[Rfam]
Shown here is a 213-nucleotide RNA sequence from Gemmobacter aquatilis, a member of the family "permuted transfer-messenger RNA". Gene Ontology term of the family: RNA catabolic process. The family's consensus secondary structure is taken from published work. NCBI's taxonomy places the organism under Bacteria, Pseudomonadati, Alphaproteobacteria, Rhodobacterales, Gemmobacter. A search with the family's covariance model found it, with a score of 144 bits.
RNA sequence: GGCGAUAAACGCACCUGUAAUAAACGGAUCGGACCCGGGGGCGGUACCCGGCGGCUCCACCAUCACACCGCUCAUUGGGCGUGGCGGGGGCCGAAACAGGAUCGACGAACGUCUAAAGAGGCCAGCUUUUGCUCGGUGAGGUACCACCGUUAUCGGUCCAAAUGUACAGUUGCCAAUGACAACCGUGCUCCGGCAAUGGCUCUGGCUGCGUAA
Numbered sequence: 001g002g003c004g005a006u007a008a009a010c011g012c013a014c015c016u017g018u019a020a021u022a023a024a025c026g027g028a029u030c031g032g033a034c035c036c037g038g039g040g041g042c043g044g045u046a047c048c049c050g051g052c053g054g055c056u057c058c059a060c061c062a063u064c065a066c067a068c069c070g071c072u073c074a075u076u077g078g079g080c081g082u083g084g085c086g087g088g089g090g091c092c093g094a095a096a097c098a099g100g101a102u103c104g105a106c107g108a109a110c111g112u113c114u115a116a117a118g119a120g121g122c123c124a125g126c127u128u129u130u131g132c133u134c135g136g137u138g139a140g141g142u143a144c145c146a147c148c149g150u151u152a153u154c155g156g157u158c159c160a161a162a163u164g165u166a167c168a169g170u171u172g173c174c175a176a177u178g179a180c181a182a183c184c185g186u187g188c189u190c191c192g193g194c195a196a197u198g199g200c201u202c203u204g205g206c207u208g209c210g211u212a213a
Stems, first nucleotide, its partner, number of pairs: 001133005014121003025111002029108003035051005052093007134149004